[Rfam]
RNA sequence: GAUUAUCGAAGGACUGCCUUAAUUCAUGAUC
Numbered sequence: 001g002a003u004u005a006u007c008g009a010a011g012g013a014c015u016g017c018c019u020u021a022a023u024u025c026a027u028g029a030u031c
Stems, first nucleotide, its partner, number of pairs: 001031006008025001009020004
Dot-bracket structure: ((((((.(((((....))))....)))))))